[Rfam]
RNA sequence: CAAUAAUCAUGAUGGUCAAAGCUCAUGAGAAUUGUGCGUCUUUGCCGCACAAUUUUCGAGGGUUU
Numbered sequence: 001c002a003a004u005a006a007u008c009a010u011g012a013u014g015g016u017c018a019a020a021g022c023u024c025a026u027g028a029g030a031a032u033u034g035u036g037c038g039u040c041u042u043u044g045c046c047g048c049a050c051a052a053u054u055u056u057c058g059a060g061g062g063u064u065u
Base pairs, nucleotide, nucleotide: 019065020064021063022062023061024060033051034050035049036048037047038046
A member of the RNA family "Streptococcus sRNA Spd-sr37" from Streptococcus pasteurianus, 65 nucleotides long. NCBI's taxonomy places the organism under Bacteria, Bacillati, Bacillota, Lactobacillales, Streptococcus pasteurianus. The family's consensus secondary structure was predicted with WAR.